[Rfam]
RNA sequence: GCUAGGAAGAGGAAGAAAGAGAGGGCUUAUGAGCGGUGGGAAUGAGAACAUAGAGGAAAGCCUAACUUAUUGGUUCUUCAUCACUUGUGUUGUGGUGGAGAUUUGGUUUGGUAUUUCCCGAUGCCUCUCAUUCCUAUCGUUCUUAUGCGCUCCUUCCUCUUCCUUUUUGCU
Number, nucleotide and partner (000 for none) at each position: 001g000002c000003u000004a000005g000006g000007a000008a000009g162010a161011g160012g159013a158014a000015g156016a155017a154018a000019g000020a000021g152022a151023g150024g000025g000026c147027u000028u145029a144030u000031g142032a141033g140034c139035g138036g000037u136038g135039g134040g133041a132042a131043u130044g129045a128046g127047a126048a000049c123050a122051u121052a000053g119054a000055g118056g117057a116058a115059a114060g000061c000062c000063u000064a000065a000066c000067u000068u000069a000070u000071u000072g000073g000074u000075u000076c000077u000078u000079c000080a000081u000082c000083a000084c000085u000086u000087g000088u000089g000090u000091u000092g000093u000094g000095g000096u000097g000098g000099a000100g000101a000102u000103u000104u000105g000106g000107u000108u000109u000110g000111g000112u000113a000114u059115u058116u057117c056118c055119c053120g000121a051122u050123g049124c000125c000126u047127c046128u045129c044130a043131u042132u041133c040134c039135u038136a037137u000138c035139g034140u033141u032142c031143u000144u029145a028146u000147g026148c000149g000150c023151u022152c021153c000154u017155u016156c015157c000158u013159c012160u011161u010162c009163c000164u000165u000166u000167u000168u000169g000170c000171u000
RNA: MIR2118 microRNA precursor family